Small Cajal body-specific RNA 2: a 418-nucleotide RNA from Moschus moschiferus.
Taxonomically the source falls in Moschus (Eukaryota, Euteleostomi, Artiodactyla, Pecora).
Rfam classes the family as a small Cajal body RNA.
A search with the family's covariance model found it, with a score of 371 bits.
Pairs were carried over by alignment from the consensus structure, which is taken from published work.
Rfam links the family to the GO terms nucleolus and RNA processing.
Nucleotides: 418
Base pairs, nucleotide, nucleotide: 052154053153054152055151056150057073058072059071060070061069085101087098089096090095104141105140106139109136110135112133113132115129182230183229184228187222188221189220190219192217193216194215196214199213200212203209204208253310254309255308256307258305259304260303262302263301264300267299268298270296271295272294275291276290277289278287279286318338319337320336321335322334323332324331325330342417343416344415345414352410353409354408355407356406357405371390372389373388376385377384
Number, partner (000 for none) and nucleotide at each position: 001000c002000u003000u004000c005000a006000c007000c008000g009000g010000a011000g012000g013000g014000a015000g016000a017000g018000c019000g020000g021000g022000u023000g024000g025000a026000a027000g028000u029000g030000a031000g032000g033000u034000u035000g036000u037000u038000g039000g040000g041000a042000c043000u044000u045000g046000c047000u048000g049000u050000g051000u052154g053153g054152u055151g056150u057073u058072g059071u060070g061069u062000g063000u064000g065000u066000g067000g068000g069061g070060u071059g072058u073057g074000u075000g076000u077000g078000u079000g080000u081000g082000c083000g084000u085101g086000g087098c088000g089096g090095c091000g092000c093000g094000u095090g096089u097000a098087g099000g100000c101085c102000c103000a104141g105140u106139g107000u108000g109136u110135g111000a112133g113132u114000g115129g116000a117000u118000g119000c120000g121000u122000g123000a124000a125000u126000g127000u128000g129115u130000g131000a132113g133112u134000g135110c136109g137000u138000g139106c140105g141104c142000c143000c144000g145000c146000c147000c148000c149000u150056g151055c152054a153053c154052c155000c156000c157000u158000c159000c160000c161000c162000c163000g164000g165000c166000c167000u168000a169000c170000a171000c172000g173000u174000u175000g176000a177000u178000c179000u180000u181000a182230u183229u184228u185000g186000a187222u188221c189220g190219g191000g192217u193216u194215g195000u196214g197000a198000c199213u200212c201000c202000a203209g204208c205000c206000c207000c208204g209203c210000c211000u212200g213199g214196c215194c216193g217192a218000c219190c220189c221188g222187a223000a224000a225000u226000g227000a228184a229183a230182a231000g232000c233000u234000u235000c236000c237000c238000u239000c240000c241000u242000g243000c244000g245000a246000a247000g248000c249000c250000c251000u252000u253310c254309c255308u256307c257000g258305g259304g260303g261000c262302g263301c264300u265000g266000u267299g268298c269000a270296g271295c272294g273000a274000g275291g276290c277289c278287c279286c280000g281000u282000g283000g284000g285000c286279g287278g288000u289277g290276g291275c292000a293000g294272u295271g296270c297000c298268g299267u300264g301263g302262c303260c304259c305258c306000g307256g308255a309254g310253g311000u312000u313000c314000c315000g316000g317000a318338g319337c320336c321335g322334g323332u324331c325330c326000u327000g328000u329000g330325g331324g332323g333000c334322c335321c336320g337319g338318c339000g340000c341000u342417c343416a344415g345414a346000a347000g348000u349000g350000a351000u352410g353409a354408a355407u356406u357405g358000a359000u360000c361000a362000g363000a364000u365000a366000g367000a368000c369000g370000a371390g372389g373388c374000c375000g376385g377384g378000c379000u380000c381000g382000u383000c384377c385376c386000g387000c388373g389372c390371c391000a392000u393000u394000g395000a396000u397000u398000a399000u400000c401000g402000a403000g404000g405357c406356g407355a408354u409353u410352c411000u412000g413000a414345u415344c416343u417342g418000a